[Rfam]
RNA sequence: AUCAGUCUUCAGGGCGGGGUGCAAUUCCCCACCGGUGGUACAGCCCACGAGCCGUAAGGCAUGAUUCGGUGAGAUUCCGAAGCCGACAGUAUAGUCUGGAUGAAAGAAGAUUUCG
Numbered sequence: 001a002u003c004a005g006u007c008u009u010c011a012g013g014g015c016g017g018g019g020u021g022c023a024a025u026u027c028c029c030c031a032c033c034g035g036u037g038g039u040a041c042a043g044c045c046c047a048c049g050a051g052c053c054g055u056a057a058g059g060c061a062u063g064a065u066u067c068g069g070u071g072a073g074a075u076u077c078c079g080a081a082g083c084c085g086a087c088a089g090u091a092u093a094g095u096c097u098g099g100a101u102g103a104a105a106g107a108a109g110a111u112u113u114c115g
Stems, first nucleotide, its partner, number of pairs: 004112007017029003031095002033085002035048004043083002053059001065081005087098003
Shown here is a 115-nucleotide RNA sequence from Flintibacter faecis, a member of the family "FMN riboswitch aptamer (RFN element)". A search with the family's covariance model found it, with a score of 114 bits. Pairs were carried over by alignment from the consensus structure, which is taken from published work. Rfam links the family to the GO term FMN binding.